RNA sequence: AGUAAAGUGAGUGUAGCGUGGCUAUAUCUCUUCUUUUACUUUAACUAGCUUUGUGCUAGAUUUUGUCUUCGGACACUAACUCGAACUAAACGAAAUAUUUGUCUUUCUAUGAAAUCAUAGAGGACAAGCGUUGAUUAUUUCCAUUCAGUUUGGCAAUCACUCCUUGGAACGGGGUUGAGCGAACGGUGCAGUAGGGUUCCGCCCCUAUUUCGUAAGUCGCCUAGUAGUAGCGAGUGCGGUUCCGCCCGUACAACGUUGGGUAGACCGGGUUCCGUCCUGUGAUCUCCCUCGCCGGCCGCCAGGAGAAUGAGUUCCAAACA
Numbered sequence: 001a002g003u004a005a006a007g008u009g010a011g012u013g014u015a016g017c018g019u020g021g022c023u024a025u026a027u028c029u030c031u032u033c034u035u036u037u038a039c040u041u042u043a044a045c046u047a048g049c050u051u052u053g054u055g056c057u058a059g060a061u062u063u064u065g066u067c068u069u070c071g072g073a074c075a076c077u078a079a080c081u082c083g084a085a086c087u088a089a090a091c092g093a094a095a096u097a098u099u100u101g102u103c104u105u106u107c108u109a110u111g112a113a114a115u116c117a118u119a120g121a122g123g124a125c126a127a128g129c130g131u132u133g134a135u136u137a138u139u140u141c142c143a144u145u146c147a148g149u150u151u152g153g154c155a156a157u158c159a160c161u162c163c164u165u166g167g168a169a170c171g172g173g174g175u176u177g178a179g180c181g182a183a184c185g186g187u188g189c190a191g192u193a194g195g196g197u198u199c200c201g202c203c204c205c206u207a208u209u210u211c212g213u214a215a216g217u218c219g220c221c222u223a224g225u226a227g228u229a230g231c232g233a234g235u236g237c238g239g240u241u242c243c244g245c246c247c248g249u250a251c252a253a254c255g256u257u258g259g260g261u262a263g264a265c266c267g268g269g270u271u272c273c274g275u276c277c278u279g280u281g282a283u284c285u286c287c288c289u290c291g292c293c294g295g296c297c298g299c300c301a302g303g304a305g306a307a308u309g310a311g312u313u314c315c316a317a318a319c320a
Base pairs, nucleotide, nucleotide: 001040002039003038004037005035006034007033012026013025014024015023016022017021045059046058047057048056049055092141093140094139095138096137097136099127100126101125102124103123104122106121107120108119109118110117111116155313156312157311160305161304162303163302164301166297167296170294171292173290174289179220180219181218182217190209191208192207193206194205195204196203230254234251235250236249237248238247239246258287259286266279267278268277269276
The record is a 320-nucleotide RNA sequence from Alphacoronavirus suis, which matches "Alphacoronavirus 5'UTR" in Rfam. The literature on the family includes a 2018 paper in Virology by Madhugiri et al., "Structural and functional conservation of cis-acting RNA elements in coronavirus 5'-terminal genome regions". Rfam's curators put it in the seed alignment. The pairing is the family consensus, mapped onto this sequence. The first 150 to 200 nucleotides within the 5' UTR of alphacoronaviruses are highly structured and shown to be conserved on the structural level among alphacoronaviruses. The 5' UTR has been predicted to contain 3 conserved stem-loops: SL1, SL2 and SL4. SL1 is important for viral replication, most likely playing a role in the template-switch of viral subgenomic RNA transcription. Mutations of the upper part of SL1 seems to have an higher impact of viral replication level. SL2 is crucial for viral viability, nucleotides are interchangeable as long as the structure remains stable. Disrupting any G-C pairing causes major defects in viral replication. SL4 is hypothesised to play a role in directing subgenomic RNA synthesis during viral replication. Downstream of SL4 lies SL5, which overlaps with the first ORF of the viral genome. It is annotated as a cis-regulatory element. Its family is annotated with viral RNA genome replication in the Gene Ontology. Clan: Coronavirus 5' UTR.